[Rfam]
RNA sequence: GAUGAGUUGAUGAACAAAUACUACAACAAUAUGAUGGAGAAAAUCUUUAUGAUUCUUAGCAUUUAGAGUCUCUGGUGAUC
Number, nucleotide and partner (000 for none) at each position: 001g079002a000003u078004g000005a076006g000007u000008u000009g000010a000011u000012g000013a000014a000015c000016a000017a000018a000019u000020a000021c000022u000023a000024c000025a000026a000027c000028a000029a000030u000031a000032u000033g000034a000035u000036g048037g047038a046039g045040a044041a000042a000043a000044u040045c039046u038047u037048u036049a000050u000051g000052a000053u000054u000055c000056u000057u000058a000059g000060c000061a000062u000063u000064u000065a000066g000067a000068g000069u000070c000071u000072c000073u000074g000075g000076u005077g000078a003079u001080c000
RNA: Small nucleolar RNA Z199
Organism: Arabis alpina